[Rfam]
A member of the RNA family "Small nucleolar RNA Z103" from Morella rubra, 94 nucleotides long. The base pairs follow the family's consensus structure, which was predicted with PFOLD. By type it is a C/D-box small nucleolar RNA. The literature on the family includes a 2003 paper in Nucleic Acids Res by Chen et al., "The high diversity of snoRNAs in plants: identification and comparative study of 120 snoRNA genes from Oryza sativa". It scores 88 bits against the family's covariance model.
RNA sequence: AUGGAAGUGAUGAUUAUUUCCCCAGACGAUCGACGCUGAUUAAACUGAGCGACCUUUUCUCUUUCGAGAAACCAAGCCAAAAGUUCUGAUCCAU
Dot-bracket structure: (((((....................................................................................)))))